[Rfam]
Nucleotides: 116
Base pairs, nucleotide, nucleotide: 005116007114011110012109013108014107015106016105017104018103019102020101021100022099023098024097025096026095027094028093030091031090033088034087035086036085037084038083039082040081041080042079043078044077046075047074
Number, partner (000 for none) and nucleotide at each position: 001000g002000u003000a004000g005116a006000g007114g008000u009000c010000c011110a012109a013108c014107g015106u016105g017104c018103u019102a020101c021100c022099a023098u024097g025096u026095a027094a028093a029000g030091c031090a032000a033088c034087u035086u036085c037084a038083g039082a040081c041080c042079a043078u044077a045000a046075u047074a048000u049000u050000u051000c052000a053000a054000u055000a056000u057000u058000u059000c060000a061000u062000a063000u064000u065000a066000u067000u068000c069000c070000u071000u072000a073000u074047u075046a076000c077044u078043a079042u080041g081040g082039u083038c084037u085036g086035a087034a088033g089000u090031u091030g092000c093028u094027u095026u096025a097024c098023a099022u100021g101020g102019u103018a104017g105016c106015a107014c108013g109012u110011u111000u112000a113000u114007u115000a116005u